[Rfam]
RNA sequence: CCCUAGCCCCGAUUGAAGUGGAAAUCCUUUUUUAUGAUUUUGCUGCGCAGCGGAAAAAUGUAAAAAAGAUUGCAGUGAAAAGCGGGAAAUAGC
Numbered sequence: 001c002c003c004u005a006g007c008c009c010c011g012a013u014u015g016a017a018g019u020g021g022a023a024a025u026c027c028u029u030u031u032u033u034a035u036g037a038u039u040u041u042g043c044u045g046c047g048c049a050g051c052g053g054a055a056a057a058a059u060g061u062a063a064a065a066a067a068g069a070u071u072g073c074a075g076u077g078a079a080a081a082g083c084g085g086g087a088a089a090u091a092g093c
Stems, first nucleotide, its partner, number of pairs: 009085003013081002018076002023071004029066008
Dot-bracket structure: ........(((.((...((...((((..((((((((......................)))))))).))))...))...)).)))........
About this RNA: Shown here is a 93-nucleotide RNA sequence from Flavobacterium noncentrifugens, a member of the family "Flavo-1 RNA". The source organism's lineage runs through Bacteria, Pseudomonadati, Flavobacteriia, Flavobacteriaceae and Flavobacterium. A search with the family's covariance model found it, with a score of 69 bits.